[Rfam]
Nucleotides: 100
Stems, first nucleotide, its partner, number of pairs: 018086002022082004029049006058076005
Number, partner (000 for none) and nucleotide at each position: 001000a002000u003000a004000a005000a006000a007000u008000u009000c010000a011000u012000u013000g014000a015000u016000g017000u018086a019085u020000a021000a022082u023081g024080u025079a026000u027000a028000a029049c030048c031047u032046c033045a034044a035000u036000a037000a038000u039000a040000u041000g042000g043000u044034u045033u046032g047031a048030g049029g050000g051000u052000c053000u054000c055000u056000a057000c058076c059075a060074g061073g062072a063000a064000c065000c066000g067000a068000a069000c070000a071000a072062u073061c074060c075059u076058g077000a078000u079025u080024a081023c082022a083000a084000a085019a086018u087000u088000a089000a090000g091000u092000g093000u094000g095000c096000u097000c098000g099000u100000c